[Rfam]
RNA sequence: ACUAAUUACAAGAACCAGGGGCGGAAAUUCCAGCCCUCUCGAUUGUUACGUAGCACGGACAGACUAUACGCCUGAUGGUCGUUCCCCAUCGGGCCUGAAAACCGCAAUACGCUGGGUAACAAUCUUCGAGGGUAGCAGUUAACGCUGCUACCCUCUUUUUUCU
Numbered sequence: 001a002c003u004a005a006u007u008a009c010a011a012g013a014a015c016c017a018g019g020g021g022c023g024g025a026a027a028u029u030c031c032a033g034c035c036c037u038c039u040c041g042a043u044u045g046u047u048a049c050g051u052a053g054c055a056c057g058g059a060c061a062g063a064c065u066a067u068a069c070g071c072c073u074g075a076u077g078g079u080c081g082u083u084c085c086c087c088a089u090c091g092g093g094c095c096u097g098a099a100a101a102c103c104g105c106a107a108u109a110c111g112c113u114g115g116g117u118a119a120c121a122a123u124c125u126u127c128g129a130g131g132g133u134a135g136c137a138g139u140u141a142a143c144g145c146u147g148c149u150a151c152c153c154u155c156u157u158u159u160u161u162c163u
Base pairs, nucleotide, nucleotide: 012162013161014160019036020035021034022033023031024030037131038130039129040128041127042123043122044121045120046119048117049116056104057103058102060097061096062095070094071093072092073091074090075089076088077087078086